[Rfam]
RNA sequence: CGGGUGGGUCGUGACUGGCGUCUGGAUGGGUCACCAUCGUGGAGCGACCCCGUCAGCUGACGCUGUGCCGCGCGCCUGGGCCUCUGGG
Numbered sequence: 001c002g003g004g005u006g007g008g009u010c011g012u013g014a015c016u017g018g019c020g021u022c023u024g025g026a027u028g029g030g031u032c033a034c035c036a037u038c039g040u041g042g043a044g045c046g047a048c049c050c051c052g053u054c055a056g057c058u059g060a061c062g063c064u065g066u067g068c069c070g071c072g073c074g075c076c077u078g079g080g081c082c083u084c085u086g087g088g
Stems, first nucleotide, its partner, number of pairs: 003053001006050007015041001017076005026037004065083001067081003
RNA: ZMP/ZTP riboswitch aptamer (pfl RNA motif)